[Rfam]
RNA sequence: AUAUUUAUUGACAAAGUGCCCGCGACGGAGAGAACAGGCAGAUCGUAAAGACGCCGUAAAUACAUCCAUGUAGGCUCGAGCCGCGCCAUCCUUGGCGCGGACGCUUU
Numbered sequence: 001a002u003a004u005u006u007a008u009u010g011a012c013a014a015a016g017u018g019c020c021c022g023c024g025a026c027g028g029a030g031a032g033a034a035c036a037g038g039c040a041g042a043u044c045g046u047a048a049a050g051a052c053g054c055c056g057u058a059a060a061u062a063c064a065u066c067c068a069u070g071u072a073g074g075c076u077c078g079a080g081c082c083g084c085g086c087c088a089u090c091c092u093u094g095g096c097g098c099g100g101a102c103g104c105u106u107u
Base pairs, nucleotide, nucleotide: 013107014106015105016104017103018102020028021027022026030077031076032075041066042065043064045063046062047061051057052056081100082099083098084097085096086095087094088093
Dot-bracket structure: ............((((((.(((...))).(((........(((.(((...((...))...))))))........)))...((((((((....)))))))).))))))
The record is a 107-nucleotide RNA from Yersinia pestis, which matches "Yersinia sRNA 224" in Rfam. The literature on the family includes a 2016 paper in Proc Natl Acad Sci U S A by Righetti et al., "Temperature-responsive in vitro RNA structurome of Yersinia pseudotuberculosis". The source organism's lineage runs through Bacteria, Pseudomonadati, Pseudomonadota, Yersinia and Yersinia pestis. Gene Ontology term of the family: response to temperature stimulus. Pairs were carried over by alignment from the consensus structure.